[Rfam]
RNA sequence: AUAAUGAUACUUCCGUCCAGUCACAGCUUGAGCGUGAUAAAACCGUCGUAACCAAAGAUGGCGGCUGUGGGAGAUCCUCACAGUGGUGAAAUUCCAAUGA
Numbered sequence: 001a002u003a004a005u006g007a008u009a010c011u012u013c014c015g016u017c018c019a020g021u022c023a024c025a026g027c028u029u030g031a032g033c034g035u036g037a038u039a040a041a042a043c044c045g046u047c048g049u050a051a052c053c054a055a056a057g058a059u060g061g062c063g064g065c066u067g068u069g070g071g072a073g074a075u076c077c078u079c080a081c082a083g084u085g086g087u088g089a090a091a092u093u094c095c096a097a098u099g100a
Base pairs, nucleotide, nucleotide: 012097013064014063015062016061065083066082067081069079070078071077084096085095086094

The family of this 100-nucleotide RNA sequence is "pemK RNA". The family's consensus secondary structure is taken from published work. It is annotated as a cis-regulatory element.